[Rfam]
RNA: Molybdenum/Tungsten riboswitch aptamer (Moco RNA motif)
Organism: Desulfosporosinus fructosivorans
RNA sequence: ACAAUUAUAUAACUCCGAGCCCGAUUACCUAAGGGAAGACUAUGGUAGUGCGGCCUGGGCUUCUAGCCCACAGGGUUGUAGGAAAAAUCUUGCAGCCUCCAUUCAUGGAAAGGAGAGCAUAGAAUCAACUC
Numbered sequence: 001a002c003a004a005u006u007a008u009a010u011a012a013c014u015c016c017g018a019g020c021c022c023g024a025u026u027a028c029c030u031a032a033g034g035g036a037a038g039a040c041u042a043u044g045g046u047a048g049u050g051c052g053g054c055c056u057g058g059g060c061u062u063c064u065a066g067c068c069c070a071c072a073g074g075g076u077u078g079u080a081g082g083a084a085a086a087a088u089c090u091u092g093c094a095g096c097c098u099c100c101a102u103u104c105a106u107g108g109a110a111a112g113g114a115g116a117g118c119a120u121a122g123a124a125u126c127a128a129c130u131c
Stems, first nucleotide, its partner, number of pairs: 003125001006122001013115004019054003024049006033041002056070005073098011099108002